[Rfam]
RNA sequence: GGUAGUAGCAAAUAUUCAAGCGAGAUCCUUGAAGGGCGAAGCGGGGAAGGGUUCCACGCAAACAUUGAUUGGGCGUGGGUGAGUCGUUCCUAAGCCGAGUGGCAAUUGCUAAGUAGCGGCGAAAGGGAAGCGGGUUAAAAUUCCCGCACACGGAUAUGGAGGCGGCGACGCAAGCAGAGGCGAAUACGCUGGCCGAGGCGCUGGGCAGAGUUGUCUUUUCUGUUUGACCGGCAUCGCGCCGUGUGGAAUCCGCUUAUCGGGAGAAACACGCGCGGGUAUGGGCAGAGCGUCAAGUUUUUUUUGGCGUCCAGCUCGCCUCGGACGGCCCCUGAAAAUUCGCCCGCGAACUUUAAAAAUUUCAUGCUGUGACGUACCGAUAUCCGCAUCAGGUCCCCAAGGUGAACAGCCUCUGCUCAA
Numbered sequence: 001g002g003u004a005g006u007a008g009c010a011a012a013u014a015u016u017c018a019a020g021c022g023a024g025a026u027c028c029u030u031g032a033a034g035g036g037c038g039a040a041g042c043g044g045g046g047a048a049g050g051g052u053u054c055c056a057c058g059c060a061a062a063c064a065u066u067g068a069u070u071g072g073g074c075g076u077g078g079g080u081g082a083g084u085c086g087u088u089c090c091u092a093a094g095c096c097g098a099g100u101g102g103c104a105a106u107u108g109c110u111a112a113g114u115a116g117c118g119g120c121g122a123a124a125g126g127g128a129a130g131c132g133g134g135u136u137a138a139a140a141u142u143c144c145c146g147c148a149c150a151c152g153g154a155u156a157u158g159g160a161g162g163c164g165g166c167g168a169c170g171c172a173a174g175c176a177g178a179g180g181c182g183a184a185u186a187c188g189c190u191g192g193c194c195g196a197g198g199c200g201c202u203g204g205g206c207a208g209a210g211u212u213g214u215c216u217u218u219u220c221u222g223u224u225u226g227a228c229c230g231g232c233a234u235c236g237c238g239c240c241g242u243g244u245g246g247a248a249u250c251c252g253c254u255u256a257u258c259g260g261g262a263g264a265a266a267c268a269c270g271c272g273c274g275g276g277u278a279u280g281g282g283c284a285g286a287g288c289g290u291c292a293a294g295u296u297u298u299u300u301u302u303g304g305c306g307u308c309c310a311g312c313u314c315g316c317c318u319c320g321g322a323c324g325g326c327c328c329c330u331g332a333a334a335a336u337u338c339g340c341c342c343g344c345g346a347a348c349u350u351u352a353a354a355a356a357u358u359u360c361a362u363g364c365u366g367u368g369a370c371g372u373a374c375c376g377a378u379a380u381c382c383g384c385a386u387c388a389g390g391u392c393c394c395c396a397a398g399g400u401g402a403a404c405a406g407c408c409u410c411u412g413c414u415c416a417a
Stems, first nucleotide, its partner, number of pairs: 015033006034415004043395004049375002054078006063071002085371003089126002094120002096113001101110003130147005150367004155363005162171003179341006188326004193321007201311003204224006228281003231277002240270005249261004288306007381390002397409004
Eukaryotic large subunit ribosomal RNA: a 417-nucleotide part of an RNA from Palmaria palmata. Lineage of the source: Eukaryota > Florideophyceae > Nemaliophycidae > Palmariaceae > Palmaria. The base pairs follow the family's consensus structure, which is taken from published work. Rfam's curators put it in the seed alignment.